[Rfam]
RNA sequence: GGAUCGAUGAUGAGCAUAAUUAUCUGAGGAUGCUGAGGGACUCAUUGCAGAUGUCAAUCUAAAGUCC
Numbered sequence: 001g002g003a004u005c006g007a008u009g010a011u012g013a014g015c016a017u018a019a020u021u022a023u024c025u026g027a028g029g030a031u032g033c034u035g036a037g038g039g040a041c042u043c044a045u046u047g048c049a050g051a052u053g054u055c056a057a058u059c060u061a062a063a064g065u066c067c
Stems, first nucleotide, its partner, number of pairs: 001067004

Source information
A member of the RNA family "Small nucleolar RNA SNORD109A" from Prolemur simus, 67 nucleotides long. Humans have two copies of the SNORD109 gene, SNORD109A and SNORD109B. The source organism's lineage runs through Eukaryota, Metazoa, Eumetazoa, Gnathostomata and Prolemur. By type it is a C/D-box small nucleolar RNA. The literature on the family includes a 2001 paper in Hum Mol Genet by Runte et al., "The IC-SNURF-SNRPN transcript serves as a host for multiple small nucleolar RNA species and as an antisense RNA for UBE3A".